[Rfam]
RNA: Group II catalytic intron D1-D4-4
Organism: Bradyrhizobium sp. BTAi1
RNA sequence: CAGUGGAGGCAGGUUCCACACGGACAAUUGUCGAUUGGUCGGUUAGCUGACGAGCGGUUCAACCGGGCGACUGGUGGGACCGGAGCCUCGUGACGAAGGCCGCGACAUGGCGGCUGAGAUCCCGUGGGCCGUAACGCGA
Number, nucleotide and partner (000 for none) at each position: 001c000002a000003g000004u000005g000006g000007a000008g000009g000010c000011a000012g000013g000014u000015u000016c000017c000018a000019c000020a043021c042022g000023g040024a039025c000026a000027a000028u000029u000030g000031u000032c000033g000034a000035u000036u000037g000038g000039u024040c023041g000042g021043u020044u000045a000046g000047c000048u000049g000050a091051c090052g089053a088054g087055c082056g081057g080058u079059u078060c077061a000062a000063c000064c073065g000066g071067g000068c000069g000070a000071c066072u000073g064074g000075u000076g000077g060078g059079a058080c057081c056082g055083g000084a000085g000086c000087c054088u053089c052090g051091u050092g000093a000094c000095g000096a000097a000098g115099g114100c113101c112102g111103c110104g000105a000106c000107a000108u000109g000110g103111c102112g101113g100114c099115u098116g132117a000118g130119a000120u000121c000122c000123c000124g000125u000126g000127g000128g000129c000130c118131g000132u116133a000134a000135c000136g000137c000138g000139a000